[Rfam]
RNA: glmS glucosamine-6-phosphate activated ribozyme aptamer
Organism: Terrihalobacillus insolitus
RNA sequence: GAAUCCUUAAAAGCGCCUGAACUAUUUUCCGUUCGGAGGAAAGUAGUUGACGAGGAGGAGGGUUAUCGAGCACGUUCGGCGGAUACCUCCCGGUUGUUACACAUCUCAACCGAUAUGUUUAUUAUUCGAAAACGAAGAGGUGACUCUUUGCACAAGAAUAAAAACAAGAUGAUG
Numbered sequence: 001g002a003a004u005c006c007u008u009a010a011a012a013g014c015g016c017c018u019g020a021a022c023u024a025u026u027u028u029c030c031g032u033u034c035g036g037a038g039g040a041a042a043g044u045a046g047u048u049g050a051c052g053a054g055g056a057g058g059a060g061g062g063u064u065a066u067c068g069a070g071c072a073c074g075u076u077c078g079g080c081g082g083a084u085a086c087c088u089c090c091c092g093g094u095u096g097u098u099a100c101a102c103a104u105c106u107c108a109a110c111c112g113a114u115a116u117g118u119u120u121a122u123u124a125u126u127c128g129a130a131a132a133c134g135a136a137g138a139g140g141u142g143a144c145u146c147u148u149u150g151c152a153c154a155a156g157a158a159u160a161a162a163a164a165c166a167a168g169a170u171g172a173u174g
Base pairs, nucleotide, nucleotide: 020048021047022046023045024044025043026042027041029039057090058089059088060087061086066079067078068077069076091112092111093110094109095108096107119164120163122161123160124159125158133150134149135148136147137146138145139144